About this RNA: TD-2 RNA: a 101-nucleotide RNA from Treponema denticola. Rfam's curators put it in the seed alignment. The family is grouped with related families in Rfam's "TD (Treponema denticola) motifs".

[Rfam]
RNA sequence: ACCGCCAUGGACGGCGGUGGUUCCAAACUUCCAAGAGUUUUAGACACAAGUCUAAAACUCUAAGAUGAAAAAUGUACACGGAUGUACAUUUUUCAUCGACU
Numbered sequence: 001a002c003c004g005c006c007a008u009g010g011a012c013g014g015c016g017g018u019g020g021u022u023c024c025a026a027a028c029u030u031c032c033a034a035g036a037g038u039u040u041u042a043g044a045c046a047c048a049a050g051u052c053u054a055a056a057a058c059u060c061u062a063a064g065a066u067g068a069a070a071a072a073u074g075u076a077c078a079c080g081g082a083u084g085u086a087c088a089u090u091u092u093u094c095a096u097c098g099a100c101u
Stems, first nucleotide, its partner, number of pairs: 001018006034061011064097014
Dot-bracket structure: ((((((......))))))...............(((((((((((......)))))))))))..((((((((((((((......))))))))))))))....